[Rfam]
Annotation:
Rfam assigns this 102-nucleotide RNA sequence from Aquibacillus halophilus to the family "Purine riboswitch aptamer". It scores 90 bits against the family's covariance model. The source organism's lineage runs through Bacteria, Bacillota, Bacilli, Caryophanales and Aquibacillus.

RNA sequence: UAAAUCUAUAAAUAAUACCUUCAUAUAUGCUCGGUAAUAUGGACCGAGCGUUUCUACUAAGAUACCGUAAAUGUCUUUGCUAUGAAGGUAGAAAUCGUUUAU
Dot-bracket structure: .................((((((((...(((((((.......))))))).........((((((.......))))))...))))))))..............